[Rfam]
RNA: Archaeal signal recognition particle RNA
RNA sequence: UGGCGGGCAGUCCGGGUGGUUCGGCGUCACCUAUAACCCGAAAUCGUCGAUACGCGGGGGGCGAAGCUGACGGAAGACCUCGGGCGCUGUGCGUUCAGUCCAGCUGCCGACUAUGAUUCUCCGUCCUGUAGGGAUAGCACCGGUCCAUGGGUCCUUCUGAGGAAUGACCCGUGUACCAUAAUUGCAGGAACCGGUUCAGGCCCGGAAGGGAGCAGACCCACUGCGGGUAACUGUCGCUUAUAGGUGUAAGGGGAGGAGAAAGCAUCGGGAAAAACUGGCGCAUAAGCCUGGGGGCGACUGCCGGCGUGCUCGCCA
Numbered sequence: 001u002g003g004c005g006g007g008c009a010g011u012c013c014g015g016g017u018g019g020u021u022c023g024g025c026g027u028c029a030c031c032u033a034u035a036a037c038c039c040g041a042a043a044u045c046g047u048c049g050a051u052a053c054g055c056g057g058g059g060g061g062c063g064a065a066g067c068u069g070a071c072g073g074a075a076g077a078c079c080u081c082g083g084g085c086g087c088u089g090u091g092c093g094u095u096c097a098g099u100c101c102a103g104c105u106g107c108c109g110a111c112u113a114u115g116a117u118u119c120u121c122c123g124u125c126c127u128g129u130a131g132g133g134a135u136a137g138c139a140c141c142g143g144u145c146c147a148u149g150g151g152u153c154c155u156u157c158u159g160a161g162g163a164a165u166g167a168c169c170c171g172u173g174u175a176c177c178a179u180a181a182u183u184g185c186a187g188g189a190a191c192c193g194g195u196u197c198a199g200g201c202c203c204g205g206a207a208g209g210g211a212g213c214a215g216a217c218c219c220a221c222u223g224c225g226g227g228u229a230a231c232u233g234u235c236g237c238u239u240a241u242a243g244g245u246g247u248a249a250g251g252g253g254a255g256g257a258g259a260a261a262g263c264a265u266c267g268g269g270a271a272a273a274a275c276u277g278g279c280g281c282a283u284a285a286g287c288c289u290g291g292g293g294g295c296g297a298c299u300g301c302c303g304g305c306g307u308g309c310u311c312g313c314c315a
Stems, first nucleotide, its partner, number of pairs: 001315009010062004014032007037058004066305004071300003076295001078293003082288002088284008099270003103266001105264003111258002117255006124248001125244008133235005139228001142177003146173008155164003182226006193218004201210003